[Rfam]
RNA sequence: GCUGUGAUCCGGGCCCCUCUGGCGACCGGGCGGUGCUCCAUGCCGAGCCCGUCCUCGUGAUGUCGGAUCGACUUC
Numbered sequence: 001g002c003u004g005u006g007a008u009c010c011g012g013g014c015c016c017c018u019c020u021g022g023c024g025a026c027c028g029g030g031c032g033g034u035g036c037u038c039c040a041u042g043c044c045g046a047g048c049c050c051g052u053c054c055u056c057g058u059g060a061u062g063u064c065g066g067a068u069c070g071a072c073u074u075c
Stems, first nucleotide, its partner, number of pairs: 006069007022058004028054006

Record summary
A member of the RNA family "terC RNA" from Teichococcus wenyumeiae, 75 nucleotides long. NCBI's taxonomy places the organism under Bacteria, Pseudomonadati, Pseudomonadota, Acetobacterales, Roseomonas. It scores 49 bits against the family's covariance model.